[Rfam]
RNA sequence: GCCCUGUGAUGACUGUUUUCAUGUGUCAACUUGGCUGGGCCACAGUACCUAGAUGAUUUUGGGGC
Numbered sequence: 001g002c003c004c005u006g007u008g009a010u011g012a013c014u015g016u017u018u019u020c021a022u023g024u025g026u027c028a029a030c031u032u033g034g035c036u037g038g039g040c041c042a043c044a045g046u047a048c049c050u051a052g053a054u055g056a057u058u059u060u061g062g063g064g065c
Stems, first nucleotide, its partner, number of pairs: 001065006
Record summary: This 65-nucleotide sequence from Heterocephalus glaber belongs to the Rfam family "Small nucleolar RNA SNORD66". Lineage of the source: Eukaryota > Opisthokonta > Euarchontoglires > Hystricomorpha > Heterocephalus. Gene Ontology terms of the family: RNA processing and nucleolus. snoRNA HBII-142 is part of the C/D family of snoRNAs. It is the human orthologue of the mouse MBII-142 snoRNA and is predicted to guide 2'O-ribose methylation of small 18S rRNA at residue C1272.